[Rfam]
RNA sequence: UUCGGCGACGGGUAUUCUCGGGCGGAUAAUACGGACACGCUGUUAUUGCUUGAGAAUACGCGUAGCCGAG
Number, nucleotide and partner (000 for none) at each position: 001u070002u069003c068004g067005g066006c000007g000008a063009c062010g061011g000012g059013u058014a057015u056016u055017c054018u053019c052020g051021g050022g049023c048024g000025g047026a046027u045028a044029a043030u042031a041032c039033g038034g000035a000036c000037a000038c033039g032040c000041u031042g030043u029044u028045a027046u026047u025048g023049c022050u021051u020052g019053a018054g017055a016056a015057u014058a013059c012060g000061c010062g009063u008064a000065g000066c005067c004068g003069a002070g001
RNA: mir-137 microRNA precursor family